[Rfam]
The family of this 124-nucleotide RNA sequence from Myotis davidii is "Small nucleolar RNA SNORA51". About the family: ACA51 is a member of the H/ACA class of snoRNA that guide the sites of modification of uridines to pseudouridines. It scores 86 bits against the family's covariance model. The family's RNA type in Rfam is H/ACA-box small nucleolar RNA. Rfam 15.1 lists 2,121 matches to the family in 210 species.

RNA sequence: GGCCAGGGCCACAGGCUGUGUUGUAUACUGACUGCACAGAAAGAGAAGGCAGAGUAAACCUACCCCACACACAGCUCAGCCCAGGCCCUUCGCCUGGUCUGUAUUGUGAAGAGGGGAAACAGAG
Numbered sequence: 001g002g003c004c005a006g007g008g009c010c011a012c013a014g015g016c017u018g019u020g021u022u023g024u025a026u027a028c029u030g031a032c033u034g035c036a037c038a039g040a041a042a043g044a045g046a047a048g049g050c051a052g053a054g055u056a057a058a059c060c061u062a063c064c065c066c067a068c069a070c071a072c073a074g075c076u077c078a079g080c081c082c083a084g085g086c087c088c089u090u091c092g093c094c095u096g097g098u099c100u101g102u103a104u105u106g107u108g109a110a111g112a113g114g115g116g117a118a119a120c121a122g123a124g
Stems, first nucleotide, its partner, number of pairs: 012034003018028004063116004068111001077101003081097006